EFASI RNA: a 134-nucleotide sequence from Escherichia coli. The source organism's lineage runs through Bacteria, Gammaproteobacteria, Enterobacteriaceae, Escherichia and Escherichia coli. The sequence is in the family's curated seed alignment.
Nucleotides: 134
Base pairs, nucleotide, nucleotide: 002134003133004132005131007130008129009128010127011126012125013124019037020036021035023033039090040089041088042087047060048059049058050057051056061083062082063081065077066076067075068074069073
Number, partner (000 for none) and nucleotide at each position: 001000a002134u003133g004132a005131g006000c007130c008129a009128g010127u011126g012125c013124c014000g015000g016000a017000g018000g019037g020036g021035g022000a023033c024000c025000a026000c027000c028000a029000g030000g031000a032000c033023g034000g035021u036020c037019c038000g039090g040089g041088g042087g043000a044000u045000g046000a047060c048059c049058a050057g051056c052000u053000a054000a055000c056051g057050c058049u059048g060047g061083c062082g063081g064000c065077u066076g067075c068074u069073c070000u071000g072000a073069g074068a075067g076066c077065a078000c079000a080000a081063c082062c083061g084000a085000u086000a087042c088041c089040c090039c091000g092000c093000a094000a095000a096000a097000c098000c099000u100000c101000a102000a103000c104000a105000g106000c107000c108000g109000u110000c111000g112000c113000c114000c115000c116000g117000g118000c119000g120000c121000u122000c123000a124013g125012g126011u127010a128009c129008u130007g131005c132004u133003c134002g